[Rfam]
RNA sequence: CCUCGCACUCACGUGCGAGGCUACGUGAUGCCGCCGCCUUCGCGGCU
Dot-bracket structure: ((((((((....))))))))............(((((....))))).
This 47-nucleotide sequence from Kolteria novifilia belongs to the Rfam family "Acido-Lenti-1 RNA". The family has 87 seed sequences and 2,607 matches in Rfam 15.1. The family's consensus secondary structure is taken from published work.